RNA sequence: GAGGUCGCGAAGACCCCACUCCUCCUCCCAGGGGUUUUUGCGAAGAACAACAGCACUCCUCCUCCCAGCUGUUGUUCGGUUCUUUUGGAAAGCCUGCCGCACCUCCUCCCGCGGCAGGCUUUUCGU
Numbered sequence: 001g002a003g004g005u006c007g008c009g010a011a012g013a014c015c016c017c018a019c020u021c022c023u024c025c026u027c028c029c030a031g032g033g034g035u036u037u038u039u040g041c042g043a044a045g046a047a048c049a050a051c052a053g054c055a056c057u058c059c060u061c062c063u064c065c066c067a068g069c070u071g072u073u074g075u076u077c078g079g080u081u082c083u084u085u086u087g088g089a090a091a092g093c094c095u096g097c098c099g100c101a102c103c104u105c106c107u108c109c110c111g112c113g114g115c116a117g118g119c120u121u122u123u124c125g126u
Base pairs, nucleotide, nucleotide: 007041008040009039011037012036013035014034015033016032017031045077046076047075048074049073050072051071052070053069054068090121091120092119093118094117095116096115097114098113099112100111
Dot-bracket structure: ......(((.(((((((.............))))))).)))...((((((((((.............))))))))))............(((((((((((..........))))))))))).....
A member of the RNA family "Alphaproteobacterial ar14" from Mycoplana azooxidifex, 126 nucleotides long. The organism belongs to Mycoplana, within Bacteria. Gene Ontology term of the family: biological process involved in symbiotic interaction.